[Rfam]
RNA sequence: GUAGGGAACGCGCGACCGCAAGUCUGACUCGCCGGCUCGCCGGCUUGGGAUUGCGGUAGUGC
Numbered sequence: 001g002u003a004g005g006g007a008a009c010g011c012g013c014g015a016c017c018g019c020a021a022g023u024c025u026g027a028c029u030c031g032c033c034g035g036c037u038c039g040c041c042g043g044c045u046u047g048g049g050a051u052u053g054c055g056g057u058a059g060u061g062c
Stems, first nucleotide, its partner, number of pairs: 010062004015057007024049002031044005
The family of this 62-nucleotide RNA sequence is "S15-Halobacteria ribosomal protein leader". The family's RNA type in Rfam is cis-regulatory leader. A reference for the family is Eckert and Weinberg (2020), "Discovery of 20 novel ribosomal leader candidates in bacteria and archaea", BMC Microbiol.